[Rfam]
RNA sequence: AGAUGUUACGAUGAGGACUCAAAGCUCCCUCUUCUGAUUUCUUAGAUGAGGAAACUCUGCUGGCAGAAUCGAACCAAAUUAAACUUCAUGCCUUCUGAGUAA
Number, nucleotide and partner (000 for none) at each position: 001a000002g000003a000004u000005g000006u102007u101008a100009c099010g000011a000012u000013g000014a000015g000016g000017a000018c000019u000020c000021a000022a000023a000024g000025c000026u000027c000028c000029c000030u000031c000032u000033u000034c000035u000036g000037a000038u000039u000040u000041c000042u000043u000044a000045g000046a000047u000048g000049a000050g000051g000052a000053a000054a000055c000056u000057c000058u000059g000060c000061u000062g000063g000064c000065a000066g000067a000068a000069u000070c000071g000072a000073a000074c000075c000076a000077a000078a000079u000080u000081a000082a000083a000084c000085u000086u000087c000088a000089u000090g000091c000092c000093u000094u000095c000096u000097g000098a000099g009100u008101a007102a006